The record is a 122-nucleotide RNA from Xenopus tropicalis, which matches "mir-2513 microRNA precursor family" in Rfam. Its family is annotated with RISC complex and miRNA-mediated post-transcriptional gene silencing in the Gene Ontology.
RNA sequence: GACAAGAACACACCUGUAACAAGGCACACCAGCUUAGAACCAUAAAAUUCACAUUUUAGAAUUUUAAAAUGUGAAUUUUAUGGUUCUAAGCUGGUGUGCCUUGUUACAGGUGUGUUCUUGUC
Numbered sequence: 001g002a003c004a005a006g007a008a009c010a011c012a013c014c015u016g017u018a019a020c021a022a023g024g025c026a027c028a029c030c031a032g033c034u035u036a037g038a039a040c041c042a043u044a045a046a047a048u049u050c051a052c053a054u055u056u057u058a059g060a061a062u063u064u065u066a067a068a069a070u071g072u073g074a075a076u077u078u079u080a081u082g083g084u085u086c087u088a089a090g091c092u093g094g095u096g097u098g099c100c101u102u103g104u105u106a107c108a109g110g111u112g113u114g115u116u117c118u119u120g121u122c
Stems, first nucleotide, its partner, number of pairs: 001122028030093002033090015